RNA sequence: CGCCCGGCCGGAUCCCGUGGGGGGAAUCCGAACCGGGAACGGGAAGCGCCCCGCUCCGAC
Numbered sequence: 001c002g003c004c005c006g007g008c009c010g011g012a013u014c015c016c017g018u019g020g021g022g023g024g025a026a027u028c029c030g031a032a033c034c035g036g037g038a039a040c041g042g043g044a045a046g047c048g049c050c051c052c053g054c055u056c057c058g059a060c
Stems, first nucleotide, its partner, number of pairs: 002060001003037005009030005014024003041051003
Record summary:
The family of this 60-nucleotide sequence from Streptomyces palmae is "Streptomyces RNA 2736". On this family, see Vockenhuber et al., RNA Biol 2011: "Deep sequencing-based identification of small non-coding RNAs in Streptomyces coelicolor". The organism belongs to Streptomyces, within Bacteria. Identified by deep sequencing of transcriptome at the end of exponential growth phase. Appears smaller on northern blot than sequencing transcript.